[Rfam]
RNA sequence: UAACCUCUGACGAAAAUCGUGAACGUUA
Numbered sequence: 001u002a003a004c005c006u007c008u009g010a011c012g013a014a015a016a017u018c019g020u021g022a023a024c025g026u027u028a
Base pairs, nucleotide, nucleotide: 001028002027003026004025008023010020011019012018013017